[Rfam]
RNA sequence: UCUGUGGAUCGUCAUAUCAAAUGAGAGUAGUUAUCAAUAACAAAAUCAGACGGGAUGAAGCAGAAA
Numbered sequence: 001u002c003u004g005u006g007g008a009u010c011g012u013c014a015u016a017u018c019a020a021a022u023g024a025g026a027g028u029a030g031u032u033a034u035c036a037a038u039a040a041c042a043a044a045a046u047c048a049g050a051c052g053g054g055a056u057g058a059a060g061c062a063g064a065a066a
Stems, first nucleotide, its partner, number of pairs: 001064005009053005022048003030041003
This 66-nucleotide RNA belongs to the Rfam family "RAGATH-18 RNA". Rfam classes the family as a small RNA.